mir-393 microRNA precursor family: a 115-nucleotide RNA sequence from Oryza sativa. Rfam links the family to the GO terms miRNA-mediated post-transcriptional gene silencing and RISC complex. It is one of the family's seed sequences. The source organism's lineage runs through Eukaryota, Streptophytina, Mesangiospermae, Oryzinae and Oryza sativa. The base pairs follow the family's consensus structure.

[Rfam]
Nucleotides: 115
Base pairs, nucleotide, nucleotide: 002114003113004112005111006110008108009107011105012104013103014102015101016100017099018098019097020096021095023093024092025091026090028089029088030087031086032085
Number, partner (000 for none) and nucleotide at each position: 001000u002114g003113g004112g005111g006110a007000a008108g009107c010000a011105u012104c013103c014102a015101a016100a017099g018098g019097g020096a021095u022000c023093g024092c025091a026090u027000u028089g029088a030087u031086c032085c033000u034000u035000c036000a037000u038000c039000g040000c041000u042000c043000u044000c045000g046000c047000u048000c049000g050000c051000u052000u053000c054000c055000a056000u057000g058000g059000c060000g061000g062000u063000c064000g065000u066000c067000g068000u069000c070000u071000a072000c073000a074000a075000g076000c077000a078000g079000c080000u081000u082000g083000a084000c085032g086031g087030a088029u089028c090026a091025u092024g093023c094000g095021a096020u097019c098018c099017u100016u101015u102014u103013g104012g105011a106000g107009g108008c109000u110006u111005c112004c113003u114002c115000u